RNA sequence: AUGUGAGGGCAAUCUGGCUGUGAUGUGUGACACACCGCUGAUGGCAAGGGUUGAUUUGACUGACCUGGCUAGCUUAGGUGGGUGUCCCCUUUCUUCCUCAACGUUCCAUGUGUGUUCCUCCUGAAGCUGUGUGCUUGGCUGCCCAGGACAACCUCCCCAGUAGAGAUGUUCAUUGGUCAAGGGUAUGUGGUAGCUGUACUCCCCUGCUGGAAACUCUAAGUAAGCUCAAGAUCUGGUAGAAGAAUGUAGGGUAGUCAAGCUUUUAAAACUGAAGUCAUAUCCAAGUGAGAAGCUGCAUGCAGCAGUCUGACAUUGUUU
Numbered sequence: 001a002u003g004u005g006a007g008g009g010c011a012a013u014c015u016g017g018c019u020g021u022g023a024u025g026u027g028u029g030a031c032a033c034a035c036c037g038c039u040g041a042u043g044g045c046a047a048g049g050g051u052u053g054a055u056u057u058g059a060c061u062g063a064c065c066u067g068g069c070u071a072g073c074u075u076a077g078g079u080g081g082g083u084g085u086c087c088c089c090u091u092u093c094u095u096c097c098u099c100a101a102c103g104u105u106c107c108a109u110g111u112g113u114g115u116u117c118c119u120c121c122u123g124a125a126g127c128u129g130u131g132u133g134c135u136u137g138g139c140u141g142c143c144c145a146g147g148a149c150a151a152c153c154u155c156c157c158c159a160g161u162a163g164a165g166a167u168g169u170u171c172a173u174u175g176g177u178c179a180a181g182g183g184u185a186u187g188u189g190g191u192a193g194c195u196g197u198a199c200u201c202c203c204c205u206g207c208u209g210g211a212a213a214c215u216c217u218a219a220g221u222a223a224g225c226u227c228a229a230g231a232u233c234u235g236g237u238a239g240a241a242g243a244a245u246g247u248a249g250g251g252u253a254g255u256c257a258a259g260c261u262u263u264u265a266a267a268a269c270u271g272a273a274g275u276c277a278u279a280u281c282c283a284a285g286u287g288a289g290a291a292g293c294u295g296c297a298u299g300c301a302g303c304a305g306u307c308u309g310a311c312a313u314u315g316u317u318u
Stems, first nucleotide, its partner, number of pairs: 001105001004100006011092002016089002022086005028080002031077001033072001035068003040065001042063001044060001116168001118165003121138004126134002139160003146156003193260003199254002202251006214242002217239001220237002223234002283318003287313001289311001292306005

Shown here is a 318-nucleotide RNA sequence from Climacteris rufus, a member of the family "7SK RNA". The family has 45 seed sequences and 49,373 matches in Rfam 15.1. About the family: 7SK was discovered as an abundant small nuclear RNA in the mid-70s but a possible function has only recently been suggested. Two independent studies have found that 7SK RNA binds the CDK9/cyclin T complex (known as elongation factor P-TEFb). P-TEFb activates transcription by phosphorylating the C-terminal domain of RNA polymerase II. This process is negatively regulated by the 7SK RNP. The secondary structure of 7SK RNA shown here was proposed by Wasserman and Steitz on the basis of chemical modification and enzymatic cleavage experiments. This family contains a number of annotated pseudogenes and 7SK derived repeats. A search with the family's covariance model found it, with a score of 186 bits. Its Rfam clan is "7SK clan".